[Rfam]
RNA sequence: AUAAUGAUACUCCUGCCGAGUCCCAGACAUCGCAAGGACGGCAGCCCGCGUGAAGGGGGAGGUGAAAUUCCUGUGA
Numbered sequence: 001a002u003a004a005u006g007a008u009a010c011u012c013c014u015g016c017c018g019a020g021u022c023c024c025a026g027a028c029a030u031c032g033c034a035a036g037g038a039c040g041g042c043a044g045c046c047c048g049c050g051u052g053a054a055g056g057g058g059g060a061g062g063u064g065a066a067a068u069u070c071c072u073g074u075g076a
Stems, first nucleotide, its partner, number of pairs: 012073001013044006045059003049055001060072003

Overview:
Shown here is a 76-nucleotide sequence, a member of the family "pemK RNA". The sequence is in the family's curated seed alignment. The family's RNA type in Rfam is cis-regulatory element.